[Rfam]
RNA sequence: AUGAGGUUCAGAGCUUAGCUGAUUGGUGAACAGUGGUCAUUUUUGCUUUGUUCACAGUGGCUAAGUUCUGCACCAAGG
Numbered sequence: 001a002u003g004a005g006g007u008u009c010a011g012a013g014c015u016u017a018g019c020u021g022a023u024u025g026g027u028g029a030a031c032a033g034u035g036g037u038c039a040u041u042u043u044u045g046c047u048u049u050g051u052u053c054a055c056a057g058u059g060g061c062u063a064a065g066u067u068c069u070g071c072a073c074c075a076a077g078g
Base pairs, nucleotide, nucleotide: 011068012067013066014065015064016063017062018061019060020059026055027054028053029052030051031050032049
This 78-nucleotide RNA sequence from Chiloscyllium punctatum belongs to the Rfam family "mir-27 microRNA precursor family". The base pairs follow the family's consensus structure, which was predicted with RNAalifold. The match comes from Rfam's covariance-model search (82 bits).